Nucleotides: 164
Stems, first nucleotide, its partner, number of pairs: 004086002007083002016076003020072007027061001029059002032056001033054001035052002038049003101158001103156001122137002125134003138155001140153005
Number, partner (000 for none) and nucleotide at each position: 001000c002000a003000a004086c005085a006000u007083u008082u009000g010000a011000u012000a013000a014000u015000a016076a017075c018074u019000g020072a021071g022070c023069u024068a025067u026066c027061u028000u029059u030058a031000g032056c033054u034000u035052a036051g037000c038049u039048u040047u041000a042000u043000g044000u045000c046000c047040a048039a049038g050000a051036c052035u053000c054033g055000u056032g057000a058030u059029g060000u061027g062000u063000u064000g065000u066026g067025a068024u069023a070022g071021c072020u073000g074018g075017g076016u077000g078000u079000a080000a081000g082008a083007a084000c085005u086004g087000c088000u089000c090000u091000a092000u093000c094000a095000a096000c097000a098000g099000a100000a101158g102000u103156c104000a105000u106000g107000a108000g109000c110000c111000c112000u113000u114000u115000a116000u117000g118000c119000c120000c121000a122137g123136u124000a125134u126133g127132u128000a129000a130000a131000g132127a133126c134125a135000c136123a137122c138155u139000c140153u141152g142151a143150g144149u145000u146000a147000u148000a149144a150143c151142u152141c153140a154000a155138a156103g157000u158101c159000a160000c161000a162000a163000c164000a
Rfam assigns this 164-nucleotide RNA from Dasypus novemcinctus to the family "Small Cajal body specific RNA 1". Pairs were carried over by alignment from the consensus structure, which was predicted with RNAalifold. On this family, see Darzacq et al., EMBO J 2002: "Cajal body-specific small nuclear RNAs: a novel class of 2'-O-methylation and pseudouridylation guide RNAs". Rfam 15.1 lists 715 matches to the family in 617 species.